[Rfam]
RNA sequence: ACAGGGUUGGCCGAAAACCUGAAACAGAGUAGGCA
Number, nucleotide and partner (000 for none) at each position: 001a000002c021003a020004g019005g018006g000007u000008u000009g000010g034011c033012c032013g000014a000015a000016a000017a000018c005019c004020u003021g002022a000023a000024a000025c000026a000027g000028a000029g000030u000031a000032g012033g011034c010035a000

The record is a 35-nucleotide RNA sequence from Niastella koreensis, which matches "DUF805b RNA" in Rfam. Pairs were carried over by alignment from the consensus structure, which is taken from published work. Clan: DUF805 clan. It is one of the family's seed sequences.